[Rfam]
The record is a 184-nucleotide RNA sequence from Luteimonas sp. J16, which matches "6S / SsrS RNA" in Rfam. The family's consensus secondary structure is taken from published work. E. coli 6S RNA was the first non coding RNA to be sequenced, but its function was unknown until recently. It is annotated as a non-coding RNA gene. The source organism's lineage runs through Bacteria, Pseudomonadati, Pseudomonadota, Lysobacterales and Luteimonas. A search with the family's covariance model found it, with a score of 84 bits.
RNA sequence: CGUCCUCUGCCGUGUACGACGGCAUGCGCAACAUUCGCCUUGUCCCUUAAGACGACCUCAGGGACGCAGCGGAGUCCGGGAGUGCAGGUCCGCCUUGCAGCGGGAAGCCCGAUGGAUGACGAGCGUCCCCUUUUGAACCUCGGGUUCAAGGUCGUUUCGCAGGCAUCGGCAUGGCGGAGGACGU
Number, nucleotide and partner (000 for none) at each position: 001c000002g182003u181004c180005c179006u178007c177008u176009g175010c174011c173012g172013u171014g170015u169016a000017c168018g167019a166020c000021g000022g000023c000024a000025u000026g000027c000028g000029c000030a000031a000032c000033a000034u000035u000036c000037g152038c151039c150040u000041u148042g147043u000044c000045c144046c143047u000048u000049a000050a000051g000052a000053c000054g000055a000056c000057c000058u000059c000060a000061g129062g128063g127064a126065c125066g124067c123068a000069g000070c000071g120072g000073a000074g117075u116076c115077c114078g113079g000080g000081a000082g000083u000084g108085c107086a000087g000088g000089u104090c103091c102092g101093c100094c000095u000096u000097g000098c000099a000100g093101c092102g091103g090104g089105a000106a000107g085108c084109c000110c000111g000112a000113u078114g077115g076116a075117u074118g000119a000120c071121g000122a000123g067124c066125g065126u064127c063128c062129c061130c000131u000132u000133u000134u000135g000136a000137a000138c000139c000140u000141c000142g000143g046144g045145u000146u000147c042148a041149a000150g039151g038152u037153c000154g000155u000156u000157u000158c000159g000160c000161a000162g000163g000164c000165a000166u019167c018168g017169g015170c014171a013172u012173g011174g010175c009176g008177g007178a006179g005180g004181a003182c002183g000184u000